[Rfam]
RNA sequence: AGAAAGGGCUUCUGUCAUGAGUGGCACACGUAGAGCAGCUUGAGUGCUCCACGUGCAGAAUCAACAUCAAGAGAUUUCAGAAGCAUAAUUAUUUGGUAUCUGGGUAGCUAGUGAUCAUUGGCCCUGGCACCCAC
Numbered sequence: 001a002g003a004a005a006g007g008g009c010u011u012c013u014g015u016c017a018u019g020a021g022u023g024g025c026a027c028a029c030g031u032a033g034a035g036c037a038g039c040u041u042g043a044g045u046g047c048u049c050c051a052c053g054u055g056c057a058g059a060a061u062c063a064a065c066a067u068c069a070a071g072a073g074a075u076u077u078c079a080g081a082a083g084c085a086u087a088a089u090u091a092u093u094u095g096g097u098a099u100c101u102g103g104g105u106a107g108c109u110a111g112u113g114a115u116c117a118u119u120g121g122c123c124c125u126g127g128c129a130c131c132c133a134c
Base pairs, nucleotide, nucleotide: 008084009083010082011081012080013026014025015024016023017022027055028054029053030052031051033049034048035047036046037045058077059076060075061074062073102132103131104130105129107128108127109126110125111124113123115121116120